[Rfam]
RNA sequence: AAUUACAACAGCUGCGCACUUCAUAUAUUCCCGGUAAUACGGUCCUGGAGUUUUUAACAGGCAACCGUAAAUUGCCCGGCCAUGAAGGUUUUUCUUCGUCGU
Number, nucleotide and partner (000 for none) at each position: 001a000002a000003u000004u000005a000006c000007a000008a000009c000010a000011g000012c000013u000014g000015c000016g000017c000018a000019c087020u086021u085022c084023a083024u082025a000026u000027a000028u000029u049030c048031c047032c000033g045034g044035u000036a000037a000038u000039a000040c000041g000042g000043u000044c034045c033046u000047g031048g030049a029050g000051u000052u000053u000054u000055u000056a000057a000058c078059a000060g076061g075062c074063a073064a072065c000066c000067g000068u000069a000070a000071a000072u064073u063074g062075c061076c060077c000078g058079g000080c000081c000082a024083u023084g022085a021086a020087g019088g000089u000090u000091u000092u000093u000094c000095u000096u000097c000098g000099u000100c000101g000102u000
RNA: Purine riboswitch aptamer
Organism: Neomoorella thermoacetica